Shown here is a 73-nucleotide RNA from Nannospalax galili, a member of the family "mir-344 microRNA precursor family". Lineage of the source: Eukaryota > Deuterostomia > Dipnotetrapodomorpha > Rodentia > Nannospalax. For this family Rfam cites "Mammalian microRNAs: experimental evaluation of novel and previously annotated genes" (Chiang et al., Genes Dev, 2010).

Nucleotides: 073
Stems, first nucleotide, its partner, number of pairs: 007067003011063002013060002017057008027041005
Number, partner (000 for none) and nucleotide at each position: 001000u002000u003000g004000c005000c006000a007067g008066u009065c010000a011063g012062g013060u014059u015000c016000c017057u018056g019055g020054c021053u022052g023051g024050a025000g026000u027041c028040u029039a030038g031037u032000u033000c034000a035000c036000a037031g038030c039029u040028g041027g042000c043000u044000c045000c046000a047000g048000g049000c050024u051023c052022u053021a054020g055019c056018c057017a058000g059014g060013a061000g062012c063011u064000u065009g066008a067007c068000u069000a070000c071000a072000a073000a